Shown here is a 58-nucleotide RNA sequence, a member of the family "RAGATH-30 RNA".
RNA sequence: GUCAAAAUAAGAGUUUAUCGACUAUGCCUACGUAAGUAGGAACUGUCAGGGAUAGUAA
Numbered sequence: 001g002u003c004a005a006a007a008u009a010a011g012a013g014u015u016u017a018u019c020g021a022c023u024a025u026g027c028c029u030a031c032g033u034a035a036g037u038a039g040g041a042a043c044u045g046u047c048a049g050g051g052a053u054a055g056u057a058a
Stems, first nucleotide, its partner, number of pairs: 027040005042056006

By type it is a small RNA.